[Rfam]
RNA sequence: GUUCUUCAAAAGCCGGCGCGCGCGCCCUAUAUUGAGCGCGUCGGGGCUUGCCCCGACUAUGGAGAUAAACGCGCACAUAAUAAGCGGACUGGACCCGGGUGCGAUUCCCGGCGGCUCCACCAAUCUUCCCCGGUCGUUAUCGCCGGAAAGCAUGGGGCCGAUCAGCAUCGACAGACGUCUAAAGGUGUUGCUUUCUCUCGGCUUGGCCCACCGUUUCGGGCUUUAAACUAAAUGCGAACGAUAACUUCGCUGAAGAAGUCCGUCUGGCCGCGUAAGCGGUUCGAUAGAUUUCGACCUAAACUCCUAGCGUCUUAGCAGCGCUAGGCGGGGCCCGGAGGGGGCCUUGCAACAGAACCCCUCCACC
Numbered sequence: 001g002u003u004c005u006u007c008a009a010a011a012g013c014c015g016g017c018g019c020g021c022g023c024g025c026c027c028u029a030u031a032u033u034g035a036g037c038g039c040g041u042c043g044g045g046g047c048u049u050g051c052c053c054c055g056a057c058u059a060u061g062g063a064g065a066u067a068a069a070c071g072c073g074c075a076c077a078u079a080a081u082a083a084g085c086g087g088a089c090u091g092g093a094c095c096c097g098g099g100u101g102c103g104a105u106u107c108c109c110g111g112c113g114g115c116u117c118c119a120c121c122a123a124u125c126u127u128c129c130c131c132g133g134u135c136g137u138u139a140u141c142g143c144c145g146g147a148a149a150g151c152a153u154g155g156g157g158c159c160g161a162u163c164a165g166c167a168u169c170g171a172c173a174g175a176c177g178u179c180u181a182a183a184g185g186u187g188u189u190g191c192u193u194u195c196u197c198u199c200g201g202c203u204u205g206g207c208c209c210a211c212c213g214u215u216u217c218g219g220g221c222u223u224u225a226a227a228c229u230a231a232a233u234g235c236g237a238a239c240g241a242u243a244a245c246u247u248c249g250c251u252g253a254a255g256a257a258g259u260c261c262g263u264c265u266g267g268c269c270g271c272g273u274a275a276g277c278g279g280u281u282c283g284a285u286a287g288a289u290u291u292c293g294a295c296c297u298a299a300a301c302u303c304c305u306a307g308c309g310u311c312u313u314a315g316c317a318g319c320g321c322u323a324g325g326c327g328g329g330g331c332c333c334g335g336a337g338g339g340g341g342c343c344u345u346g347c348a349a350c351a352g353a354a355c356c357c358c359u360c361c362a363c364c
Stems, first nucleotide, its partner, number of pairs: 040057007061198005071191002073188004085177002089174003095111005112160007199213003205222005328344004334361006
About this RNA: The record is a 364-nucleotide sequence from Phenylobacterium sp. Root1277, which matches "Alphaproteobacteria transfer-messenger RNA" in Rfam. Rfam's curators write: Bacterial tmRNA, also known as 10Sa RNA or SsrA, is named for its dual tRNA and mRNA-like properties. The literature on the family includes a 1997 paper in RNA by Felden et al., "Probing the structure of the Escherichia coli 10Sa RNA (tmRNA)". Its family is annotated with RNA catabolic process in the Gene Ontology. The match comes from Rfam's covariance-model search (239 bits). Taxonomically the source falls in Phenylobacterium (Bacteria, Pseudomonadati, Pseudomonadota, Caulobacterales).